[Rfam]
Actino-pnp RNA: a 60-nucleotide sequence from Actinoplanes friuliensis.
By type it is a cis-regulatory element.
The organism belongs to Actinoplanes friuliensis, within Bacteria.
The match comes from Rfam's covariance-model search (60 bits).

RNA sequence: CCCGGUCCUCGGUAGUGGUUCCCGAGCAUUGAAUCUCGGGCACUUCGAUCGAAGACCGGC
Numbered sequence: 001c002c003c004g005g006u007c008c009u010c011g012g013u014a015g016u017g018g019u020u021c022c023c024g025a026g027c028a029u030u031g032a033a034u035c036u037c038g039g040g041c042a043c044u045u046c047g048a049u050c051g052a053a054g055a056c057c058g059g060c
Stems, first nucleotide, its partner, number of pairs: 002059006009052005017044003021040006028034002